[Rfam]
RNA: Bacterial RNase P class A
RNA sequence: UGAGUCGGCCGGGCGGCCGCGUCGGAGGAGCGAUCCUCCGCCGAGGAAAGUCCGGACUCCGCAGGGCAGGGUGGUUGUUAACGGCAACCCGGGGUGACCCGCGGGACAGUGCCACAGAGAGCAGACCGCCCGGGUCGUGCGAACGACUCGGGUAAGGGUGAAAGGGUGGUGUAAGAGACCACCAGCAUCCCGGGUGACCGGGAUGGCUAGGUAAACCCCACCCGGAGCAAGGCCAAGAGGACGCCGCGAGGCGUCUGCGCAGGCGUUCGAGGGCUGCCCGCCCGAGCCUGCGGGUAGGCCGCUGGAGUGUGCCGGCGACGGCAGACCGAGAUGGAUGGCCGCCACCCGUCGACCGCGAGGUCCGGCGGGCACAGGAUCCGGCUUAUGUGUCGACUCAUCCG
Numbered sequence: 001u002g003a004g005u006c007g008g009c010c011g012g013g014c015g016g017c018c019g020c021g022u023c024g025g026a027g028g029a030g031c032g033a034u035c036c037u038c039c040g041c042c043g044a045g046g047a048a049a050g051u052c053c054g055g056a057c058u059c060c061g062c063a064g065g066g067c068a069g070g071g072u073g074g075u076u077g078u079u080a081a082c083g084g085c086a087a088c089c090c091g092g093g094g095u096g097a098c099c100c101g102c103g104g105g106a107c108a109g110u111g112c113c114a115c116a117g118a119g120a121g122c123a124g125a126c127c128g129c130c131c132g133g134g135u136c137g138u139g140c141g142a143a144c145g146a147c148u149c150g151g152g153u154a155a156g157g158g159u160g161a162a163a164g165g166g167u168g169g170u171g172u173a174a175g176a177g178a179c180c181a182c183c184a185g186c187a188u189c190c191c192g193g194g195u196g197a198c199c200g201g202g203a204u205g206g207c208u209a210g211g212u213a214a215a216c217c218c219c220a221c222c223c224g225g226a227g228c229a230a231g232g233c234c235a236a237g238a239g240g241a242c243g244c245c246g247c248g249a250g251g252c253g254u255c256u257g258c259g260c261a262g263g264c265g266u267u268c269g270a271g272g273g274c275u276g277c278c279c280g281c282c283c284g285a286g287c288c289u290g291c292g293g294g295u296a297g298g299c300c301g302c303u304g305g306a307g308u309g310u311g312c313c314g315g316c317g318a319c320g321g322c323a324g325a326c327c328g329a330g331a332u333g334g335a336u337g338g339c340c341g342c343c344a345c346c347c348g349u350c351g352a353c354c355g356c357g358a359g360g361u362c363c364g365g366c367g368g369g370c371a372c373a374g375g376a377u378c379c380g381g382c383u384u385a386u387g388u389g390u391c392g393a394c395u396c397a398u399c400c401g
Stems, first nucleotide, its partner, number of pairs: 001397009011386001012343007020043002023040006048384003052381005057227004064279004069223005074088005089103001090101004104218002109216002111212003126157002128153011165183006185207001186205008231300004259291006271283004307326002310323005